[Rfam]
Nucleotides: 050
Stems, first nucleotide, its partner, number of pairs: 006019005036049004
Number, partner (000 for none) and nucleotide at each position: 001000c002000a003000c004000a005000a006019c007018c008017g009016g010015a011000g012000u013000u014000c015010u016009c017008c018007g019006g020000a021000a022000a023000a024000u025000a026000a027000a028000g029000g030000c031000a032000a033000a034000u035000c036049g037048u038047c039046c040000g041000g042000g043000u044000c045000a046039g047038g048037a049036c050000a